[Rfam]
RNA: S10-Clostridia ribosomal protein leader
Organism: Clostridium puniceum
RNA sequence: AUACAGCGAUGAAUCAAGAGGUUGCCGGACUUCCGGGUAAUUCUUGAUGAGUAAGUUUGGGUCUAGAACCCGACGA
Number, nucleotide and partner (000 for none) at each position: 001a000002u000003a000004c000005a000006g000007c000008g000009a000010u000011g000012a000013a000014u047015c046016a045017a000018g043019a042020g041021g000022u000023u000024g000025c036026c035027g034028g033029a000030c000031u000032u000033c028034c027035g026036g025037g000038u000039a000040a000041u020042u019043c018044u000045u016046g015047a014048u000049g000050a000051g000052u000053a000054a000055g000056u076057u075058u000059g000060g000061g074062u073063c072064u000065a000066g000067a000068a000069c000070c000071c000072g063073a062074c061075g057076a056